[Rfam]
RNA sequence: GCACUGGAUGGGGGUUAUAUCGCAGUGACCCAGUGCUGCCCAUCGUAGGAGAGCGACGGUAGAGGGGCAGACAGUGC
Number, nucleotide and partner (000 for none) at each position: 001g077002c076003a075004c074005u073006g072007g000008a000009u032010g031011g030012g029013g000014g000015u000016u000017a000018u000019a000020u000021c000022g000023c000024a000025g000026u000027g000028a000029c012030c011031c010032a009033g000034u000035g000036c000037u069038g068039c067040c066041c065042a000043u063044c062045g000046u000047a000048g000049g000050a000051g000052a000053g000054c000055g000056a000057c000058g000059g000060u000061a000062g044063a043064g000065g041066g040067g039068c038069a037070g000071a000072c006073a005074g004075u003076g002077c001
RNA: CyVA-1 RNA
Organism: Chamaesiphon minutus